[Rfam]
RNA sequence: CAAAAGGGUGUUUGCCGCUUGGAUGGCACGCGGCCCCUCGGGGUCGUGGGGUAUGGUUAUCAAGACAUACUCAACACAUAAUUUUUGUCGAGAGGAAGCAGUUGGCUACCUGCGUACCGGCGCUUCC
Numbered sequence: 001c002a003a004a005a006g007g008g009u010g011u012u013u014g015c016c017g018c019u020u021g022g023a024u025g026g027c028a029c030g031c032g033g034c035c036c037c038u039c040g041g042g043g044u045c046g047u048g049g050g051g052u053a054u055g056g057u058u059a060u061c062a063a064g065a066c067a068u069a070c071u072c073a074a075c076a077c078a079u080a081a082u083u084u085u086u087g088u089c090g091a092g093a094g095g096a097a098g099c100a101g102u103u104g105g106c107u108a109c110c111u112g113c114g115u116a117c118c119g120g121c122g123c124u125u126c127c
Base pairs, nucleotide, nucleotide: 008077009076010075011074012073013028014027015026016025017024029048030047031046032045033044034043035042036041049072050071051070052069053068054067055066096125097124098123099122101121102120103119104118105117107116108115109114
A member of the RNA family "U11 spliceosomal RNA" from Bombyx mori, 127 nucleotides long.
The base pairs follow the family's consensus structure, which is taken from published work.
It is one of the family's seed sequences.
Its family is annotated with mRNA 5'-splice site recognition, U11 snRNP and pre-mRNA 5'-splice site binding in the Gene Ontology.